[Rfam]
RNA: mir-7939 microRNA precursor family
RNA sequence: UAUGGGCCCUUAAACCAUUCAUGUUGCCAUCCAAAUCAUGAAUGUUUUGGAGGCCCGUGG
Numbered sequence: 001u002a003u004g005g006g007c008c009c010u011u012a013a014a015c016c017a018u019u020c021a022u023g024u025u026g027c028c029a030u031c032c033a034a035a036u037c038a039u040g041a042a043u044g045u046u047u048u049g050g051a052g053g054c055c056c057g058u059g060g
Stems, first nucleotide, its partner, number of pairs: 003057002006054003010050005016044005022038002